The family of this 86-nucleotide sequence from Falsibacillus pallidus is "ZMP/ZTP riboswitch aptamer (pfl RNA motif)".
Nucleotides: 086
Stems, first nucleotide, its partner, number of pairs: 006053007015044002017074005027040004064079003
Number, partner (000 for none) and nucleotide at each position: 001000u002000g003000c004000c005000u006053g007052c008051a009050c010049a011048g012047u013000g014000a015044c016043u017074g018073a019072c020071g021070a022000c023000a024000a025000a026000c027040g028039u029038g030037g031000a032000a033000u034000c035000a036000a037030c038029c039028a040027c041000a042000a043016g044015g045000g046000a047012g048011c049010u050009g051008u052007g053006u054000u055000c056000a057000g058000u059000a060000u061000a062000a063000c064079g065078u066077c067000g068000g069000g070021u071020c072019g073018u074017c075000u076000g077066g078065g079064c080000a081000g082000a083000g084000a085000u086000a